[Rfam]
RNA sequence: CGGACAGGGGGGUCCCCGCCAUCCCGCGGGGCCUGUCCGAACGGGCCGCGCGGACUCCUGCGCCGGGCGGCCGGUGGUUGUCGCUCGGGGGUGAUCGCCG
Numbered sequence: 001c002g003g004a005c006a007g008g009g010g011g012g013u014c015c016c017c018g019c020c021a022u023c024c025c026g027c028g029g030g031g032c033c034u035g036u037c038c039g040a041a042c043g044g045g046c047c048g049c050g051c052g053g054a055c056u057c058c059u060g061c062g063c064c065g066g067g068c069g070g071c072c073g074g075u076g077g078u079u080g081u082c083g084c085u086c087g088g089g090g091g092u093g094a095u096c097g098c099c100g
Stems, first nucleotide, its partner, number of pairs: 001039008014031006044072006051065003

The record is a 100-nucleotide sequence from Streptomyces somaliensis, which matches "che1 RNA" in Rfam.
It is one of the family's seed sequences.